[Rfam]
RNA sequence: GUCCCUUUAGCUCAGUGGACUAGAGCGAUUGGCUACGAACCAAUAGGCCAGGGGUUCGAAUCCCUCAAGGGACU
Numbered sequence: 001g002u003c004c005c006u007u008u009a010g011c012u013c014a015g016u017g018g019a020c021u022a023g024a025g026c027g028a029u030u031g032g033c034u035a036c037g038a039a040c041c042a043a044u045a046g047g048c049c050a051g052g053g054g055u056u057c058g059a060a061u062c063c064c065u066c067a068a069g070g071g072a073c074u
Stems, first nucleotide, its partner, number of pairs: 001073007010026004028044005051065004
RNA: tRNA